[Rfam]
RNA sequence: GCGCCGCGCAAAGAAUCGUCGUCGCAGCACACACACAGGGGGCCGCGCGCCCCCCUCUUCCAGCUGUGGGGAAAGUCCCCGGAGGCGCAGACUGUGCGCUCACGCACGCCCGGCGCAGAUGCGGAAAGCGGCCGCCUCUAAUCGGGCGGGACGUGCGCCGGGCCUCGGCUGCUCUCGCUUCUCCUGCUUUCGUUGGGGGAUGCAGGCAGCACGGGGGUCUGCAGCCCGGAGCUCGGUCGUACGACGCGAAGAUACGAGCGGACUGGACUCCGGGCACUGUUGCUCAUAGACAUAGUUAUGCGAUUGCUGUGCCGUUCGGCGCGGUAACACAAUGGGGCUCACUCUCGCACGGCG
Numbered sequence: 001g002c003g004c005c006g007c008g009c010a011a012a013g014a015a016u017c018g019u020c021g022u023c024g025c026a027g028c029a030c031a032c033a034c035a036c037a038g039g040g041g042g043c044c045g046c047g048c049g050c051c052c053c054c055c056u057c058u059u060c061c062a063g064c065u066g067u068g069g070g071g072a073a074a075g076u077c078c079c080c081g082g083a084g085g086c087g088c089a090g091a092c093u094g095u096g097c098g099c100u101c102a103c104g105c106a107c108g109c110c111c112g113g114c115g116c117a118g119a120u121g122c123g124g125a126a127a128g129c130g131g132c133c134g135c136c137u138c139u140a141a142u143c144g145g146g147c148g149g150g151a152c153g154u155g156c157g158c159c160g161g162g163c164c165u166c167g168g169c170u171g172c173u174c175u176c177g178c179u180u181c182u183c184c185u186g187c188u189u190u191c192g193u194u195g196g197g198g199g200a201u202g203c204a205g206g207c208a209g210c211a212c213g214g215g216g217g218u219c220u221g222c223a224g225c226c227c228g229g230a231g232c233u234c235g236g237u238c239g240u241a242c243g244a245c246g247c248g249a250a251g252a253u254a255c256g257a258g259c260g261g262a263c264u265g266g267a268c269u270c271c272g273g274g275c276a277c278u279g280u281u282g283c284u285c286a287u288a289g290a291c292a293u294a295g296u297u298a299u300g301c302g303a304u305u306g307c308u309g310u311g312c313c314g315u316u317c318g319g320c321g322c323g324g325u326a327a328c329a330c331a332a333u334g335g336g337g338c339u340c341a342c343u344c345u346c347g348c349a350c351g352g353c354g
Stems, first nucleotide, its partner, number of pairs: 002354005008348002011345001014305006022069007038053004074339002077337004086098004202222006224275008233266004245260003307324006
A member of the RNA family "RNase MRP" from Dentipellis sp. KUC8613, 354 nucleotides long. It is annotated as a ribozyme. A reference for the family is Piccinelli et al. (2005), "Identification and analysis of ribonuclease P and MRP RNA in a broad range of eukaryotes", Nucleic Acids Res. Rfam describes the family as follows. RNase MRP is an enzymatically active ribonucleoprotein with two distinct roles in eukaryotes. In mitochondria it plays a direct role in the initiation of mitochondrial DNA replication. The family's consensus secondary structure is taken from published work.